[Rfam]
RNA sequence: AUUUCUUUUAACAUAUCAGGAAGUCGAGUUGACAGUGAAGAAAGAAGUAGGAAGUCGAAAGCCAUCACUACCUAUAACCAAAACUCAUAAACCGAUACCAUGCUUUUUUCUUCACCGCCAAUUUGACUUCUUAAUAUGUUAAAAGAAAU
Numbered sequence: 001a002u003u004u005c006u007u008u009u010a011a012c013a014u015a016u017c018a019g020g021a022a023g024u025c026g027a028g029u030u031g032a033c034a035g036u037g038a039a040g041a042a043a044g045a046a047g048u049a050g051g052a053a054g055u056c057g058a059a060a061g062c063c064a065u066c067a068c069u070a071c072c073u074a075u076a077a078c079c080a081a082a083a084c085u086c087a088u089a090a091a092c093c094g095a096u097a098c099c100a101u102g103c104u105u106u107u108u109u110c111u112u113c114a115c116c117g118c119c120a121a122u123u124u125g126a127c128u129u130c131u132u133a134a135u136a137u138g139u140u141a142a143a144a145g146a147a148a149u
Base pairs, nucleotide, nucleotide: 004146005145006144007143008142009141010140011139012138013137014136015135016134018132020130021129022128023127024126025125026124027123028122029121030120031119033117035115036114037113038112039111040110041109042108043107044106045105046104048102049101051099055095056094
This 149-nucleotide RNA sequence from Gossypium aridum belongs to the Rfam family "MIR8643 microRNA precursor family". Gene Ontology terms of the family: miRNA-mediated post-transcriptional gene silencing and RISC complex. The family has 2 seed sequences and 522 matches in Rfam 15.1. The source organism's lineage runs through Eukaryota, Streptophytina, Gunneridae, Malvoideae and Gossypium. The match comes from Rfam's covariance-model search (141 bits).